[Rfam]
RNA: Small nucleolar RNA SNORD56
RNA sequence: UUGCUAUGAUGGAUGCAUUUUUCGUCAACAGCAUUUCACCCAGUGAAUGGUGACACUUCAGGUCUGAGCAA
Numbered sequence: 001u002u003g004c005u006a007u008g009a010u011g012g013a014u015g016c017a018u019u020u021u022u023c024g025u026c027a028a029c030a031g032c033a034u035u036u037c038a039c040c041c042a043g044u045g046a047a048u049g050g051u052g053a054c055a056c057u058u059c060a061g062g063u064c065u066g067a068g069c070a071a
Stems, first nucleotide, its partner, number of pairs: 002070003008026004
Dot-bracket structure: .(((...((((...........)))).........................................))).